[Rfam]
RNA sequence: GACCUUGCCCCAAGGCAGAAAAUUCACUUAUCUAGAUUAGCUGGUAGAUGAUGACAAUAGGGUCAUCCGGUCGAAGGUUAGGACUCUUAAUUAAGCAGACAA
Dot-bracket structure: .....((((....)))).....................(((.....(..((((((......))))))....)....))).......................
RNA: RT-17 RNA